A member of the RNA family "PhotoRC-II RNA" from Makelovirus prm1, 96 nucleotides long. The match comes from Rfam's covariance-model search (70 bits). Lineage of the source: Viruses > Uroviricota > Pantevenvirales > Kyanoviridae > Makelovirus prm1.
[Rfam]
RNA sequence: CGUUUUUGUUGUCUUCUCUGCAAACCGAGACCUCUAGGGAAGUAAAACACGUCUCUCAUACCCACACUGGAGGGUGGUGUGGGAAUACUACUACUG
Numbered sequence: 001c002g003u004u005u006u007u008g009u010u011g012u013c014u015u016c017u018c019u020g021c022a023a024a025c026c027g028a029g030a031c032c033u034c035u036a037g038g039g040a041a042g043u044a045a046a047a048c049a050c051g052u053c054u055c056u057c058a059u060a061c062c063c064a065c066a067c068u069g070g071a072g073g074g075u076g077g078u079g080u081g082g083g084a085a086u087a088c089u090a091c092u093a094c095u096g
Base pairs, nucleotide, nucleotide: 014041015040016039017038018037019036020035027055028054029053030052031051061083062082063081064080065079066078067077